[Rfam]
RNA sequence: UUGUCUCCAUUCUUCGGAGGAUCCAGUGAGGGAAGAAGAUGUCCCCAAAGGAAUGCGUUCCACAACAAUUUUUCACUCUGGACACGCCGCGGGAACCUGCCUCGGCUACAACCAGAAGUAAGUAUCGGCGUCUGAUUAUGGGACAAGAAUUAAGCAGGCAUGAAAUUUAUGUUUGGCAAUUGCACGUGCCUUAUGGAUGCGAGGAGUAAAGGUUAAAAUAGAGGAUUUAUUUCGGUUCUUUGAAUUUAUUAAGGAAACCUGUCCUU
Numbered sequence: 001u002u003g004u005c006u007c008c009a010u011u012c013u014u015c016g017g018a019g020g021a022u023c024c025a026g027u028g029a030g031g032g033a034a035g036a037a038g039a040u041g042u043c044c045c046c047a048a049a050g051g052a053a054u055g056c057g058u059u060c061c062a063c064a065a066c067a068a069u070u071u072u073u074c075a076c077u078c079u080g081g082a083c084a085c086g087c088c089g090c091g092g093g094a095a096c097c098u099g100c101c102u103c104g105g106c107u108a109c110a111a112c113c114a115g116a117a118g119u120a121a122g123u124a125u126c127g128g129c130g131u132c133u134g135a136u137u138a139u140g141g142g143a144c145a146a147g148a149a150u151u152a153a154g155c156a157g158g159c160a161u162g163a164a165a166u167u168u169a170u171g172u173u174u175g176g177c178a179a180u181u182g183c184a185c186g187u188g189c190c191u192u193a194u195g196g197a198u199g200c201g202a203g204g205a206g207u208a209a210a211g212g213u214u215a216a217a218a219u220a221g222a223g224g225a226u227u228u229a230u231u232u233c234g235g236u237u238c239u240u241u242g243a244a245u246u247u248a249u250u251a252a253g254g255a256a257a258c259c260u261g262u263c264c265u266u
Stems, first nucleotide, its partner, number of pairs: 027036001075119003078115002088104002091101002125146001127144001131142004151193003154189003200242008210228005251266005
A member of the RNA family "Mason-Pfizer monkey virus packaging signal" from Nannospalax galili, 266 nucleotides long. On this family, see Mustafa et al., Virus Res 2004: "Mutational analysis of the predicted secondary RNA structure of the Mason-Pfizer monkey virus packaging signal". The match comes from Rfam's covariance-model search (118 bits). The base pairs follow the family's consensus structure, which was predicted with PFOLD.